[Rfam]
The family of this 137-nucleotide RNA sequence from Setaria italica is "Small nucleolar RNA Z247". The match comes from Rfam's covariance-model search (47 bits). Rfam classes the family as a C/D-box small nucleolar RNA. NCBI's taxonomy places the organism under Eukaryota, Streptophytina, Panicodae, Cenchrinae, Setaria. Rfam links the family to the GO terms RNA processing and nucleolus. The family has 8 seed sequences and 7,071 matches in Rfam 15.1. The literature on the family includes a 2003 paper in Nucleic Acids Res by Chen et al., "The high diversity of snoRNAs in plants: identification and comparative study of 120 snoRNA genes from Oryza sativa".

RNA sequence: CUCAUUGAUGAUGGUGAGAUGGCAUCUCAUAUACUUAAUGGUCUUGACUUUGAGUAUAAUCCUUUUGUAUCUUCAAAGCUUGGCCAUGCGGAUCCCCUUCCUCUCUGAGUUAUACUCUCAUCUGAUGUCCUAUGAGC
Numbered sequence: 001c002u003c004a005u006u007g008a009u010g011a012u013g014g015u016g017a018g019a020u021g022g023c024a025u026c027u028c029a030u031a032u033a034c035u036u037a038a039u040g041g042u043c044u045u046g047a048c049u050u051u052g053a054g055u056a057u058a059a060u061c062c063u064u065u066u067g068u069a070u071c072u073u074c075a076a077a078g079c080u081u082g083g084c085c086a087u088g089c090g091g092a093u094c095c096c097c098u099u100c101c102u103c104u105c106u107g108a109g110u111u112a113u114a115c116u117c118u119c120a121u122c123u124g125a126u127g128u129c130c131u132a133u134g135a136g137c
Stems, first nucleotide, its partner, number of pairs: 001136005088106001091105002